[Rfam]
RNA sequence: ACUCUCCAAGCUCUGCAUGGUAAAACUUGGCUUAACUCGUGACUUUUGUAAUGUAGAGAGAGAGGAAAGAGCUCAGGAUCUUGGAUGGCUUCACAGUGGCCUCUCUUUCCUUGAGGAGUCCAACAGAG
Numbered sequence: 001a002c003u004c005u006c007c008a009a010g011c012u013c014u015g016c017a018u019g020g021u022a023a024a025a026c027u028u029g030g031c032u033u034a035a036c037u038c039g040u041g042a043c044u045u046u047u048g049u050a051a052u053g054u055a056g057a058g059a060g061a062g063a064g065g066a067a068a069g070a071g072c073u074c075a076g077g078a079u080c081u082u083g084g085a086u087g088g089c090u091u092c093a094c095a096g097u098g099g100c101c102u103c104u105c106u107u108u109c110c111u112u113g114a115g116g117a118g119u120c121c122a123a124c125a126g127a128g
Stems, first nucleotide, its partner, number of pairs: 002064005011058005019044003025040002072118002075112003083106003087101004